Shown here is a 340-nucleotide RNA sequence from Lachnospiraceae bacterium AM48-27BH, a member of the family "transfer-messenger RNA". On this family, see Felden et al., RNA 1997: "Probing the structure of the Escherichia coli 10Sa RNA (tmRNA)".
Nucleotides: 340
Base pairs, nucleotide, nucleotide: 001336002335003334004333005332006331007330020309021308022307023306024305025304026303027302028301034295035294036293038291043284044283045282046281047280048060049059050058051057052056107122108121109120110119111118123160124159125158126157127156128155130151131150132149133148134147135146136145139173140172141171142170143169144168179208180207182205184203185202186201187200189219190218191217192216193215194214221258222257226253227252228251229250230249233246234245235244237276238275239274240273242270243269313329314328315327316326317325
Number, partner (000 for none) and nucleotide at each position: 001336g002335g003334g004333c005332c006331u007330g008000u009000a010000c011000u012000g013000g014000u015000u016000u017000c018000g019000a020309c021308a022307g023306g024305g025304g026303u027302c028301a029000u030000g031000c032000a033000g034295c035294u036293g037000g038291u039000g040000a041000a042000g043284c044283u045282a046281u047280c048060c049059c050058c051057a052056u053000g054000c055000g056052a057051u058050g059049g060048g061000u062000u063000a064000a065000a066000u067000g068000g069000c070000a071000a072000a073000a074000u075000u076000a077000a078000a079000a080000u081000u082000a083000a084000a085000c086000g087000c088000u089000g090000a091000a092000g093000a094000u095000a096000a097000u098000u099000u100000a101000g102000c103000a104000u105000a106000c107122g108121c109120u110119g111118c112000c113000u114000a115000a116000u117000g118111g119110c120109a121108g122107c123160u124159g125158u126157c127156a128155g129000c130151c131150c132149u133148a134147g135146u136145g137000c138000a139173c140172u141171c142170a143169c144168a145136c146135a147134u148133u149132a150131g151130g152000a153000a154000c155128c156127u157126g158125g159124c160123a161000u162000c163000g164000a165000c166000u167000a168144u169143g170142u171141g172140a173139g174000a175000a176000a177000c178000g179208a180207c181000a182205c183000a184203u185202g186201c187200a188000a189219a190218g191217c192216u193215u194214u195000g196000a197000g198000c199000a200187u201186g202185c203184g204000g205182g206000c207180g208179u209000a210000u211000c212000a213000u214194g215193a216192a217191g218190c219189u220000a221258c222257u223000a224000a225000a226253g227252u228251g229250u230249u231000c232000a233246g234245g235244g236000u237276g238275u239274u240273a241000g242270u243269u244235c245234c246233c247000g248000g249230g250229g251228c252227a253226u254000g255000g256000a257222g258221g259000g260000a261000a262000u263000g264000u265000c266000a267000a268000a269243g270242a271000a272000c273240u274239g275238a276237c277000u278000a279000u280047g281046a282045u283044a284043g285000u286000a287000g288000a289000a290000g291038a292000a293036c294035a295034g296000g297000g298000a299000a300000u301028u302027g303026a304025u305024u306023u307022u308021u309020g310000g311000a312000c313329a314328c315327g316326g317325g318000u319000u320000c321000a322000a323000a324000u325317c326316c327315c328314g329313u330007c331006a332005g333004g334003u335002c336001c337000a338000c339000u340000u

It scores 121 bits against the family's covariance model.